[Rfam]
RNA sequence: UUAGCUAUUUUAGAUAAUGUUUGUAUUCAUCACUGGAUGCAAACAGGGCAAAACGCAAGUUUGUAUCUAUGAUGGCUAGAGCAAUUUCACGUACCACCAGCCACGUAGAGGAAAUACUAAGUGGCUGAGGAUAAGAAAAUGAUUAUCUCGUAUGUACAAUCAUCCACUUAGCAUUCUGAGUGGGUGA
Numbered sequence: 001u002u003a004g005c006u007a008u009u010u011u012a013g014a015u016a017a018u019g020u021u022u023g024u025a026u027u028c029a030u031c032a033c034u035g036g037a038u039g040c041a042a043a044c045a046g047g048g049c050a051a052a053a054c055g056c057a058a059g060u061u062u063g064u065a066u067c068u069a070u071g072a073u074g075g076c077u078a079g080a081g082c083a084a085u086u087u088c089a090c091g092u093a094c095c096a097c098c099a100g101c102c103a104c105g106u107a108g109a110g111g112a113a114a115u116a117c118u119a120a121g122u123g124g125c126u127g128a129g130g131a132u133a134a135g136a137a138a139a140u141g142a143u144u145a146u147c148u149c150g151u152a153u154g155u156a157c158a159a160u161c162a163u164c165c166a167c168u169u170a171g172c173a174u175u176c177u178g179a180g181u182g183g184g185u186g187a
Base pairs, nucleotide, nucleotide: 001079002078003077004076005075006074007073011069012068013067014066015065016064019044020043021042022041023040024039025038026037027036028035029034049063050062051061052060083140085138086137087136090135094130099126100125101124102123103122104121106119107118108117143187144186145185146184147183148182

Enterococcus sRNA 2410: a 187-nucleotide sequence from Enterococcus pallens. A reference for the family is Sinel et al. (2017), "Small RNAs in vancomycin-resistant Enterococcus faecium involved in daptomycin response and resistance", Sci Rep. Rfam's curators write: Produced as 2 transcripts on Northern blot. Expressed in mid, late exponential and early stationary phases of growth. Expression remained uniform under daptomycin exposure. Taxonomically the source falls in Enterococcus pallens (Bacteria, Bacillota, Bacilli, Enterococcus).